[Rfam]
Record summary
A member of the RNA family "Small nucleolar RNA SNORD34" from Peucedramus taeniatus, 73 nucleotides long.
RNA sequence: CGGUGUCAGUGAUGUCUCCUUUACCUACAUUGUUUGAGGUCUGCUGAGAAAAACCCUAAACUCUGAGACACUU
Numbered sequence: 001c002g003g004u005g006u007c008a009g010u011g012a013u014g015u016c017u018c019c020u021u022u023a024c025c026u027a028c029a030u031u032g033u034u035u036g037a038g039g040u041c042u043g044c045u046g047a048g049a050a051a052a053a054c055c056c057u058a059a060a061c062u063c064u065g066a067g068a069c070a071c072u073u
Stems, first nucleotide, its partner, number of pairs: 002072001004070004
It scores 39 bits against the family's covariance model.
The family's consensus secondary structure was predicted with PFOLD.
snoRNA U34 is found in intron 5 of the ribosomal protein L13a gene in humans.
Gene Ontology terms of the family: RNA processing and nucleolus.